Record summary:
A member of the RNA family "Mycobacterium sRNA Ms_AS-1", 98 nucleotides long.
Nucleotides: 098
Base pairs, nucleotide, nucleotide: 007038008037009036010035011034014033015032018029019028043054044053046051078091079090080089081088082087
Number, partner (000 for none) and nucleotide at each position: 001000g002000u003000g004000g005000u006000g007038c008037u009036g010035g011034g012000g013000a014033g015032g016000a017000a018029g019028g020000a021000a022000u023000u024000g025000a026000c027000c028019c029018u030000c031000c032015c033014u034011c035010c036009c037008a038007g039000g040000a041000u042000g043054c044053c045000c046051a047000a048000u049000u050000g051046u052000u053044g054043g055000g056000u057000g058000u059000c060000u061000u062000g063000a064000u065000g066000g067000u068000u069000c070000u071000u072000u073000u074000u075000c076000u077000c078091c079090c080089g081088g082087c083000a084000a085000u086000g087082g088081c089080u090079g091078g092000a093000g094000u095000a096000a097000u098000u